[Rfam]
Makes More Granules Regulator RNA (mmgR): a 79-nucleotide sequence from Croceicoccus pelagius.
It scores 54 bits against the family's covariance model.
The base pairs follow the family's consensus structure.
SuhB later renamed mmgR (makes more granules regulator) was a putative non-coding RNA found multiple times in the Agrobacterium tumefaciens genome and related alpha-proteobacteria. Other non-coding RNAs uncovered in the same analysis include: speF, ybhL, metA, and serC.Several studies inSinorhizobium meliloti showed that suhB element is indeed a non-coding RNA:firstly it was detected on Northern blot and called Sm8RNA, secondly in an RNAseq study referred to as SmelC689.The mutant phenotype's (strain lacking the small RNA) cytoplasm contains higher content of polyhydroxybutyrate (PBH)storage granules than wild type strain.
RNA sequence: AGAUCCUGCCUUUCAGGCAUCCUCUCCCAAAACUUCAUGGCCCGGUCGGCUUGUCCACCGGGCCUUUUUCUUUGCCUGC
Numbered sequence: 001a002g003a004u005c006c007u008g009c010c011u012u013u014c015a016g017g018c019a020u021c022c023u024c025u026c027c028c029a030a031a032a033c034u035u036c037a038u039g040g041c042c043c044g045g046u047c048g049g050c051u052u053g054u055c056c057a058c059c060g061g062g063c064c065u066u067u068u069u070c071u072u073u074g075c076c077u078g079c
Stems, first nucleotide, its partner, number of pairs: 008018004039064008
The source organism's lineage runs through Bacteria, Pseudomonadota, Sphingomonadales, Erythrobacteraceae and Croceicoccus.